[Rfam]
RNA sequence: UUGCUGGUAAUCUUUAGCUGUAAUUUAUUCUUUUGAGAAUAAACGUUCUCAAAAAUAAGGAACAAUUCUCAAAAAAUAAG
Numbered sequence: 001u002u003g004c005u006g007g008u009a010a011u012c013u014u015u016a017g018c019u020g021u022a023a024u025u026u027a028u029u030c031u032u033u034u035g036a037g038a039a040u041a042a043a044c045g046u047u048c049u050c051a052a053a054a055a056u057a058a059g060g061a062a063c064a065a066u067u068c069u070c071a072a073a074a075a076a077u078a079a080g
Stems, first nucleotide, its partner, number of pairs: 013074003017070001020068001022067004026041006045063004
rpsL sRNA: an 80-nucleotide sequence from Cuculus canorus. Taxonomically the source falls in Cuculus (Eukaryota, Chordata, Gnathostomata, Amniota). The family's consensus secondary structure is taken from published work. It scores 38 bits against the family's covariance model.